[Rfam]
RNA sequence: CUGCGCUGAUGAUUGUUAAUGAGACGACUCAGUAUUUCUGACCUGCUGGUCAGUUCUGACUGGGAAAUGACCUCAGUUAAUCUUCUCUCUGAGCAG
Numbered sequence: 001c002u003g004c005g006c007u008g009a010u011g012a013u014u015g016u017u018a019a020u021g022a023g024a025c026g027a028c029u030c031a032g033u034a035u036u037u038c039u040g041a042c043c044u045g046c047u048g049g050u051c052a053g054u055u056c057u058g059a060c061u062g063g064g065a066a067a068u069g070a071c072c073u074c075a076g077u078u079a080a081u082c083u084u085c086u087c088u089c090u091g092a093g094c095a096g
Stems, first nucleotide, its partner, number of pairs: 003094002038053003
Rfam assigns this 96-nucleotide sequence from Cynoglossus semilaevis to the family "Z30 small nucleolar RNA". By type it is a C/D-box small nucleolar RNA. The base pairs follow the family's consensus structure, which was predicted with PFOLD. It scores 53 bits against the family's covariance model. NCBI's taxonomy places the organism under Eukaryota, Bilateria, Teleostomi, Clupeocephala, Cynoglossus.